[Rfam]
RNA sequence: CUCCAACCCAGUUCAAGUAAUCCAGGAUAGGCUGUGUUGUCCUGGUUGGCCUAUUCACGAUUACUUGCCCCUGGGUGAGAG
Number, nucleotide and partner (000 for none) at each position: 001c000002u080003c079004c000005a000006a000007c075008c074009c073010a072011g071012u000013u000014c067015a066016a065017g064018u063019a062020a061021u060022c059023c000024a000025g056026g055027a054028u053029a052030g051031g050032c049033u048034g000035u000036g000037u000038u000039g000040u000041c000042c000043u000044g000045g000046u000047u000048g033049g032050c031051c030052u029053a028054u027055u026056c025057a000058c000059g022060a021061u020062u019063a018064c017065u016066u015067g014068c000069c000070c000071c011072u010073g009074g008075g007076u000077g000078a000079g003080a002081g000
Notes: Shown here is an 81-nucleotide RNA sequence from Gadus morhua, a member of the family "mir-26 microRNA precursor family". A search with the family's covariance model found it, with a score of 70 bits.